The record is a 207-nucleotide RNA sequence from Cyanobacteria bacterium K_DeepCast_35m_m2_023, which matches "permuted transfer-messenger RNA" in Rfam. Lineage of the source: Bacteria > Bacillati > Cyanobacteriota. On this family, see Williams and Bartel, RNA 1996: "Phylogenetic analysis of tmRNA secondary structure". The family's consensus secondary structure is taken from published work. Rfam's curators put it in the seed alignment. Rfam classes the family as a non-coding RNA gene.
RNA sequence: GGUGGCUCACACCAGUGUUUCGGACAGCGGUUCGAUUCCGCUCAGCUCCACUUGCAUCGCUUCUGGCCCUGCCGGAAGUUUUCCGGGGCUGCAAUGGUUUCGACGGGGCAUGAGGAGAGUGACUGAAGCCUGCUCGGUCAGAGCACACACGUAACUGCGAACAACAUCGUUCGUUUCUCCCGUCAAGCCGCCCCUGUGGCUGCCUGA
Numbered sequence: 001g002g003u004g005g006c007u008c009a010c011a012c013c014a015g016u017g018u019u020u021c022g023g024a025c026a027g028c029g030g031u032u033c034g035a036u037u038c039c040g041c042u043c044a045g046c047u048c049c050a051c052u053u054g055c056a057u058c059g060c061u062u063c064u065g066g067c068c069c070u071g072c073c074g075g076a077a078g079u080u081u082u083c084c085g086g087g088g089c090u091g092c093a094a095u096g097g098u099u100u101c102g103a104c105g106g107g108g109c110a111u112g113a114g115g116a117g118a119g120u121g122a123c124u125g126a127a128g129c130c131u132g133c134u135c136g137g138u139c140a141g142a143g144c145a146c147a148c149a150c151g152u153a154a155c156u157g158c159g160a161a162c163a164a165c166a167u168c169g170u171u172c173g174u175u176u177c178u179c180c181c182g183u184c185a186a187g188c189c190g191c192c193c194c195u196g197u198g199g200c201u202g203c204c205u206g207a
Stems, first nucleotide, its partner, number of pairs: 001124003005120001016110003020106003026042005043091007
Dot-bracket structure: (((.(..........(((.(((...(((((.......)))))(((((((...................................)))))))............))).))).........).)))...................................................................................